This 182-nucleotide sequence from Medicago truncatula belongs to the Rfam family "MIR2619 microRNA precursor family". Its family is annotated with miRNA-mediated post-transcriptional gene silencing and RISC complex in the Gene Ontology.
Nucleotides: 182
Stems, first nucleotide, its partner, number of pairs: 001182002004179005012171011025158001027156001029154013043141004072111002
Number, partner (000 for none) and nucleotide at each position: 001182a002181a003000a004179c005178c006177g007176u008175c009000c010000c011000c012171u013170a014169a015168g016167u017166u018165u019164u020163g021162c022161a023000a024000c025158u026000u027156u028000a029154g030153c031152a032151g033150u034149u035148u036147u037146g038145g039144c040143c041142c042000u043141c044140c045139a046138a047000g048000g049000c050000c051000a052000a053000u054000u055000u056000u057000u058000g059000g060000u061000a062000a063000a064000a065000a066000g067000a068000u069000a070000a071000a072111a073110u074000a075000a076000a077000a078000a079000a080000u081000a082000a083000c084000a085000u086000a087000u088000g089000a090000c091000a092000c093000c094000u095000c096000a097000c098000u099000u100000a101000g102000g103000g104000c105000g106000u107000c108000a109000c110073g111072u112000c113000a114000g115000c116000g117000u118000a119000g120000a121000c122000c123000g124000a125000g126000u127000c128000a129000a130000a131000a132000u133000u134000g135000g136000c137000c138046u139045u140044g141043g142041g143040g144039g145038c146037c147036a148035a149034a150033a151032c152031u153030g154029c155000c156027a157000c158025a159000a160000a161022u162021g163020c164019a165018a166017a167016a168015c169014u170013u171012a172000g173000g174000g175008g176007g177006c178005g179004g180000u181002u182001u
The family's consensus secondary structure was predicted with RNAalifold. Lineage of the source: Eukaryota > Streptophyta > Papilionoideae > Hologalegina > Medicago.